RNA sequence: AGUCCUUUUCUUGGCGGGGAUUGGGCGUGCGGUCUCGGUCCGAGUAACGUACGGAGGUAGAGGGAAAGGGCUUCGGCCCUCUCCGCGUCAUGUCUUCGGUACCGGCGGCCUCCAUUCCGCGGGUUCUAUCCUCAAGCGCUGGGACAUAG
Numbered sequence: 001a002g003u004c005c006u007u008u009u010c011u012u013g014g015c016g017g018g019g020a021u022u023g024g025g026c027g028u029g030c031g032g033u034c035u036c037g038g039u040c041c042g043a044g045u046a047a048c049g050u051a052c053g054g055a056g057g058u059a060g061a062g063g064g065a066a067a068g069g070g071c072u073u074c075g076g077c078c079c080u081c082u083c084c085g086c087g088u089c090a091u092g093u094c095u096u097c098g099g100u101a102c103c104g105g106c107g108g109c110c111u112c113c114a115u116u117c118c119g120c121g122g123g124u125u126c127u128a129u130c131c132u133c134a135a136g137c138g139c140u141g142g143g144a145c146a147u148a149g
Base pairs, nucleotide, nucleotide: 003055004054005053015044018041019040020039022037023036024035025034083141085139086138087137088136102123103122105120106119107118108117